[Rfam]
Shown here is a 54-nucleotide RNA sequence from Megalops atlanticus, a member of the family "UnaL2 LINE 3' element". The eel long interspersed element (LINE) UnaL2 and its partner short interspersed element (SINE) share a conserved 3' tail containing a stem-loop that is critical for their retrotransposition. Taxonomically the source falls in Megalops (Eukaryota, Teleostomi, Actinopterygii, Elopocephala). A search with the family's covariance model found it, with a score of 56 bits. Pairs were carried over by alignment from the consensus structure, which is taken from published work.
RNA sequence: AACUGUAACCUAUGUAAGUCGCUCUGGAUGAGAGUGUCUGCUAAAUGACAGUAC
Numbered sequence: 001a002a003c004u005g006u007a008a009c010c011u012a013u014g015u016a017a018g019u020c021g022c023u024c025u026g027g028a029u030g031a032g033a034g035u036g037u038c039u040g041c042u043a044a045a046u047g048a049c050a051g052u053a054c
Base pairs, nucleotide, nucleotide: 013043014041015040016039020036021035022034023033024032025031